[Rfam]
RNA sequence: CUCACCCUGCGGUGUUCGCGAUUGCCAUAUAUUCCUUGAACCAUUUAUGUGCACCGGUUGCGGGAUUAUGUUCGAUGGGAGUGAGCGUCGCUAGUCCGACGAACCCGAAAUUGAACUAACUGUGACCACCUUGAACCGUUUGGUUCGGGAUGCCGGCAAAGACGGCACAGGCGGGGCUUUA
Numbered sequence: 001c002u003c004a005c006c007c008u009g010c011g012g013u014g015u016u017c018g019c020g021a022u023u024g025c026c027a028u029a030u031a032u033u034c035c036u037u038g039a040a041c042c043a044u045u046u047a048u049g050u051g052c053a054c055c056g057g058u059u060g061c062g063g064g065a066u067u068a069u070g071u072u073c074g075a076u077g078g079g080a081g082u083g084a085g086c087g088u089c090g091c092u093a094g095u096c097c098g099a100c101g102a103a104c105c106c107g108a109a110a111u112u113g114a115a116c117u118a119a120c121u122g123u124g125a126c127c128a129c130c131u132u133g134a135a136c137c138g139u140u141u142g143g144u145u146c147g148g149g150a151u152g153c154c155g156g157c158a159a160a161g162a163c164g165g166c167a168c169a170g171g172c173g174g175g176g177c178u179u180u181a
Stems, first nucleotide, its partner, number of pairs: 005176006012168004017164002033150003037147006056127003060123004070116007081105001086101005
The record is a 181-nucleotide RNA sequence from Massilia psychrophila, which matches "6S / SsrS RNA" in Rfam. The family's consensus secondary structure is taken from published work. Rfam's curators write: E. coli 6S RNA was the first non coding RNA to be sequenced, but its function was unknown until recently. The match comes from Rfam's covariance-model search (74 bits).